Rfam assigns this 109-nucleotide RNA sequence from Xiphophorus maculatus to the family "Small nucleolar RNA SNORD46". Its family is annotated with RNA processing and nucleolus in the Gene Ontology. The pairing is the family consensus, mapped onto this sequence.
RNA sequence: AGCGUGAGAGAUGAAAACUUGCCCUUAGGUAGGCUCCUGUUUGAGCCGUUUUGGUUCAAAGCUUUGGACUUACCAAUGGUAGGACUUGUCAUAGUUACACUGACACGCU
Numbered sequence: 001a002g003c004g005u006g007a008g009a010g011a012u013g014a015a016a017a018c019u020u021g022c023c024c025u026u027a028g029g030u031a032g033g034c035u036c037c038u039g040u041u042u043g044a045g046c047c048g049u050u051u052u053g054g055u056u057c058a059a060a061g062c063u064u065u066g067g068a069c070u071u072a073c074c075a076a077u078g079g080u081a082g083g084a085c086u087u088g089u090c091a092u093a094g095u096u097a098c099a100c101u102g103a104c105a106c107g108c109u
Stems, first nucleotide, its partner, number of pairs: 001109006
Dot-bracket structure: ((((((.................................................................................................))))))
About this RNA
Taxonomically the source falls in Xiphophorus (Eukaryota, Craniata, Gnathostomata, Clupeocephala). A search with the family's covariance model found it, with a score of 60 bits. U40 is a C/D box small nucleolar RNA, also known as snoZ153 in plants. The human sequence has also been annotated in the sequence databases as U46. U40 is encoded in intron 2 of the ribosomal protein S8 gene in human, and is hypothesised to guide methylation of 2'-O-ribose residues on 28S ribosomal RNA. This family represents vertebrate U40. The family is grouped with related families in Rfam's "SNORD46 clan".